RNA sequence: AUGUACCCCUUACACUCCGGUUCCUCCGCGCCGCCGGCCGCAUCCACCUGACAACAACUGCUCGCUACGUUUUAUUAGCU
Dot-bracket structure: .((((.....))))...((((.(....)....))))...........((((.((.................)).))))..
RNA: Xanthomonas sRNA sX9